[Rfam]
RNA sequence: GGGGAUAUAGCUCAGUUGGGAGAGCGACGCACUUGCACUGCGUAGGUCAGCGGUUCGACUCCGCUUAUCUCCA
Numbered sequence: 001g002g003g004g005a006u007a008u009a010g011c012u013c014a015g016u017u018g019g020g021a022g023a024g025c026g027a028c029g030c031a032c033u034u035g036c037a038c039u040g041c042g043u044a045g046g047u048c049a050g051c052g053g054u055u056c057g058a059c060u061c062c063g064c065u066u067a068u069c070u071c072c073a
Stems, first nucleotide, its partner, number of pairs: 001072007010025004027043005049065005
The record is a 73-nucleotide RNA from Propionigenium maris, which matches "tRNA" in Rfam. The base pairs follow the family's consensus structure, which is taken from published work. The match comes from Rfam's covariance-model search (70 bits). About the family: Transfer RNA (tRNA) molecules are approximately 80 nucleotides in length. Their secondary structure includes four short double-helical elements and three loops (D, anti-codon, and T loops). Gene Ontology term of the family: triplet codon-amino acid adaptor activity.